[Rfam]
RNA sequence: CCCAGAGGUAUUGAUAGGUGAAUUUCUCAGGUACGGCUGCCGUACUUUCACUUACACCGACCUGCGCAGAUGCGCAGGUUUUUUUU
Numbered sequence: 001c002c003c004a005g006a007g008g009u010a011u012u013g014a015u016a017g018g019u020g021a022a023u024u025u026c027u028c029a030g031g032u033a034c035g036g037c038u039g040c041c042g043u044a045c046u047u048u049c050a051c052u053u054a055c056a057c058c059g060a061c062c063u064g065c066g067c068a069g070a071u072g073c074g075c076a077g078g079u080u081u082u083u084u085u086u
Base pairs, nucleotide, nucleotide: 017058018057019056020055021048030046031045032044033043034042035041060079061078062077063076064075065074066073067072
The record is an 86-nucleotide RNA from Pluralibacter gergoviae, which matches "OmrA-B family" in Rfam. The literature on the family includes a 2001 paper in Genes Dev by Wassarman et al., "Identification of novel small RNAs using comparative genomics and microarrays". The base pairs follow the family's consensus structure, which was predicted with WAR. The source organism's lineage runs through Bacteria, Pseudomonadati, Pseudomonadota, Enterobacterales and Pluralibacter. It is annotated as a small RNA. A search with the family's covariance model found it, with a score of 82 bits.